[Rfam]
RNA sequence: AGUCCUUCUUAGCCAUCUUUAGCUCCCGGUUUUUAAGGACUAUCUAUACUCAAAAUGCUUC
Numbered sequence: 001a002g003u004c005c006u007u008c009u010u011a012g013c014c015a016u017c018u019u020u021a022g023c024u025c026c027c028g029g030u031u032u033u034u035a036a037g038g039a040c041u042a043u044c045u046a047u048a049c050u051c052a053a054a055a056u057g058c059u060u061c
Stems, first nucleotide, its partner, number of pairs: 001041006011031004
This 61-nucleotide RNA belongs to the Rfam family "rhtB sRNA". The sequence is in the family's curated seed alignment. The literature on the family includes a 2009 paper in BMC Genomics by Meyer et al., "Identification of candidate structured RNAs in the marine organism 'Candidatus Pelagibacter ubique'". The family's RNA type in Rfam is small RNA.